[Rfam]
RNA sequence: CUCUGGUCCAGCAAAUGGAGCAGGGCAAAGGAG
Numbered sequence: 001c002u003c004u005g006g007u008c009c010a011g012c013a014a015a016u017g018g019a020g021c022a023g024g025g026c027a028a029a030g031g032a033g
Base pairs, nucleotide, nucleotide: 001025002024003023004022005021008018009017010016
Notes
A member of the RNA family "L31-Firmicutes ribosomal protein leader" from Enterococcus faecium, 33 nucleotides long. On this family, see Eckert and Weinberg, BMC Microbiol 2020: "Discovery of 20 novel ribosomal leader candidates in bacteria and archaea". By type it is a cis-regulatory leader. The family is grouped with related families in Rfam's "Ribosomal Protein L31 Leader clan". The base pairs follow the family's consensus structure, which is taken from published work. Rfam's curators put it in the seed alignment.